This 101-nucleotide RNA sequence from Rhodobacteraceae bacterium 63075 belongs to the Rfam family "ALIL pseudoknot". It is annotated as a cis-regulatory element.
RNA sequence: GGCUUUUUUCGCAGCGGCGGACCUCGACUGCCAACGGAAGAGAUGAUCAUCGCGGCGAGUACGGCGUCGAGGCGAUCUAUAAGGUAUUGCCGAUCGCGCCG
Number, nucleotide and partner (000 for none) at each position: 001g000002g000003c000004u000005u000006u000007u000008u000009u000010c000011g000012c000013a000014g000015c000016g032017g031018c030019g029020g028021a000022c000023c000024u000025c000026g000027a000028c020029u019030g018031c017032c016033a000034a000035c000036g000037g000038a000039a000040g000041a000042g000043a000044u000045g000046a000047u000048c000049a000050u000051c000052g000053c000054g000055g000056c000057g000058a000059g000060u000061a000062c101063g100064g099065c098066g097067u000068c000069g000070a000071g000072g000073c096074g095075a000076u093077c092078u000079a000080u089081a088082a087083g000084g000085u000086a000087u082088u081089g080090c000091c000092g077093a076094u000095c074096g073097c066098g065099c064100c063101g062